[Rfam]
RNA sequence: UAGAACUAUUACUUUGAGAAAUCAAAUGAGUGGGUAACGCCACAAAGGGUUUCCUCUAAUACUCCGACAUGCGGGAAAAGUUGAUAUUAACAUGAACCGUAUGAAGCUCGGUGAAGUCGGUUGAAAGUGACCGUAAAGCAUUAUCAAAUGCUACGAAAUCUGCUCAGAGGUGGGCGGUGUCACCCAUAGACCGGGAGUCUAUAAA
Numbered sequence: 001u002a003g004a005a006c007u008a009u010u011a012c013u014u015u016g017a018g019a020a021a022u023c024a025a026a027u028g029a030g031u032g033g034g035u036a037a038c039g040c041c042a043c044a045a046a047g048g049g050u051u052u053c054c055u056c057u058a059a060u061a062c063u064c065c066g067a068c069a070u071g072c073g074g075g076a077a078a079a080g081u082u083g084a085u086a087u088u089a090a091c092a093u094g095a096a097c098c099g100u101a102u103g104a105a106g107c108u109c110g111g112u113g114a115a116g117u118c119g120g121u122u123g124a125a126a127g128u129g130a131c132c133g134u135a136a137a138g139c140a141u142u143a144u145c146a147a148a149u150g151c152u153a154c155g156a157a158a159u160c161u162g163c164u165c166a167g168a169g170g171u172g173g174g175c176g177g178u179g180u181c182a183c184c185c186a187u188a189g190a191c192c193g194g195g196a197g198u199c200u201a202u203a204a205a
Stems, first nucleotide, its partner, number of pairs: 018053006033041002054197004064111004068103007078093001080091002118193005127183005132155003138151005160177007
About this RNA: Group II catalytic intron D1-D4-5: a 205-nucleotide sequence from Clostridioides difficile. Rfam describes the family as follows. Group II introns are found in rRNA, tRNA and mRNA of organelles in fungi, plants and protists, and also in mRNA in bacteria. The literature on the family includes a 2001 paper in Trends Genet by Bonen and Vogel, "The ins and outs of group II introns".